About this RNA:
Shown here is a 132-nucleotide sequence from Megasphaera geminata, a member of the family "FMN riboswitch aptamer (RFN element)". The organism belongs to Megasphaera geminata, within Bacteria. From the family's description: The RFN element is a highly conserved domain that is found frequently in the 5'-untranslated regions of prokaryotic mRNAs that encode for flavin mononucleotide (FMN) biosynthesis and transport proteins.

RNA sequence: CAUAGUCUUUGAGGCAAGGUGAGAAAGCACUGCUUUCAAGUCCUGACCGGCGGUGACAGUCCGCGAGCCCUGAGGGGCUGAACCGGUGUGAACCCGGUACCGACAGUAACAGUCUGGAUGAAAAAGACAUCC
Numbered sequence: 001c002a003u004a005g006u007c008u009u010u011g012a013g014g015c016a017a018g019g020u021g022a023g024a025a026a027g028c029a030c031u032g033c034u035u036u037c038a039a040g041u042c043c044u045g046a047c048c049g050g051c052g053g054u055g056a057c058a059g060u061c062c063g064c065g066a067g068c069c070c071u072g073a074g075g076g077g078c079u080g081a082a083c084c085g086g087u088g089u090g091a092a093c094c095c096g097g098u099a100c101c102g103a104c105a106g107u108a109a110c111a112g113u114c115u116g117g118a119u120g121a122a123a124a125a126g127a128c129a130u131c132c
Stems, first nucleotide, its partner, number of pairs: 005128006017044003046113002048102002050064004059100002067078003082098005104116003